[Rfam]
The record is an 87-nucleotide sequence from Ricinus communis, which matches "MIR473 microRNA precursor family" in Rfam. The organism belongs to Ricinus, within Eukaryota. On this family, see Lu et al., Plant Cell 2005: "Novel and mechanical stress-responsive MicroRNAs in Populus trichocarpa that are absent from Arabidopsis". Pairs were carried over by alignment from the consensus structure, which was predicted with WAR.

RNA sequence: UUCAUUCUUCACUCUCCCUCAAGGGCUUCUGUGUGUUUUUUGGUCGAAAGACCAAUUCAGAGGUCCUGUAGGGAGAGUGGAUAAUAU
Numbered sequence: 001u002u003c004a005u006u007c008u009u010c011a012c013u014c015u016c017c018c019u020c021a022a023g024g025g026c027u028u029c030u031g032u033g034u035g036u037u038u039u040u041u042g043g044u045c046g047a048a049a050g051a052c053c054a055a056u057u058c059a060g061a062g063g064u065c066c067u068g069u070a071g072g073g074a075g076a077g078u079g080g081a082u083a084a085u086a087u
Stems, first nucleotide, its partner, number of pairs: 009080010022067008